Rfam assigns this 334-nucleotide sequence from Mucor lusitanicus to the family "RNase MRP". It scores 56 bits against the family's covariance model. Lineage of the source: Eukaryota > Mucoromycotina > Mucoraceae > Mucor > Mucor lusitanicus. Rfam links the family to the GO terms rRNA processing, ribonuclease MRP complex and ribonuclease MRP activity.
[Rfam]
RNA sequence: AGCAACAGAGAAGAUCUGCACUUGACGUUAAUUAAUUAUACAUACUGGAAUGUUUAUCAUUCGAUACAAUUUUUACGUUAGGGAAGGUCUCCAGACUAUUGUGGCUCUCUCUUUACAAGAGAGCUAUACCUGUAAUGGGUAUAAAAGAUGCGUUGCCUCUGGUUAACGUGCUUUCUCUAUCUUUUGGCAAAAACAAAGUUUGAGUUUCAGAAGCUCUAGAGAUUGCUAUUUCACUGGUCAUAGUUAUAGUUAUUGCGGAUACUAUUUCUCUUGAUCUUUCUUUGUAAAGACCAUGAGAAUAGUUAACAGAAUGGAGACUACUCUCUCAAGUUGC
Numbered sequence: 001a002g003c004a005a006c007a008g009a010g011a012a013g014a015u016c017u018g019c020a021c022u023u024g025a026c027g028u029u030a031a032u033u034a035a036u037u038a039u040a041c042a043u044a045c046u047g048g049a050a051u052g053u054u055u056a057u058c059a060u061u062c063g064a065u066a067c068a069a070u071u072u073u074u075a076c077g078u079u080a081g082g083g084a085a086g087g088u089c090u091c092c093a094g095a096c097u098a099u100u101g102u103g104g105c106u107c108u109c110u111c112u113u114u115a116c117a118a119g120a121g122a123g124c125u126a127u128a129c130c131u132g133u134a135a136u137g138g139g140u141a142u143a144a145a146a147g148a149u150g151c152g153u154u155g156c157c158u159c160u161g162g163u164u165a166a167c168g169u170g171c172u173u174u175c176u177c178u179a180u181c182u183u184u185u186g187g188c189a190a191a192a193a194c195a196a197a198g199u200u201u202g203a204g205u206u207u208c209a210g211a212a213g214c215u216c217u218a219g220a221g222a223u224u225g226c227u228a229u230u231u232c233a234c235u236g237g238u239c240a241u242a243g244u245u246a247u248a249g250u251u252a253u254u255g256c257g258g259a260u261a262c263u264a265u266u267u268c269u270c271u272u273g274a275u276c277u278u279u280c281u282u283u284g285u286a287a288a289g290a291c292c293a294u295g296a297g298a299a300u301a302g303u304u305a306a307c308a309g310a311a312u313g314g315a316g317a318c319u320a321c322u323c324u325c326u327c328a329a330g331u332u333g334c
Base pairs, nucleotide, nucleotide: 002334003333004332005331006330008327009326010325011324014260015259016258017257018256019255022081023080024079025078026077027076028075048062049061050060051059052058085319086318089316090315091314092313125143126142127141128140129139130138145231146230147229150226151225152224157221158220159219160218168215261303262302263301264300265299266298